[Rfam]
RNA: Mammalian CPEB3 ribozyme
RNA sequence: AUCGCAAUUUCGAGGCCAUAGUAGAAGUGCUCAUGAUGCGCCCAUGUCAGAUUCCAAUGAAUCAGCAAAUUCUGCU
Numbered sequence: 001a002u003c004g005c006a007a008u009u010u011c012g013a014g015g016c017c018a019u020a021g022u023a024g025a026a027g028u029g030c031u032c033a034u035g036a037u038g039c040g041c042c043c044a045u046g047u048c049a050g051a052u053u054c055c056a057a058u059g060a061a062u063c064a065g066c067a068a069a070u071u072c073u074g075c076u
Base pairs, nucleotide, nucleotide: 014042015041017040020076021075022074023073024072025071026070027039028038029037048065050063051062052061053060054059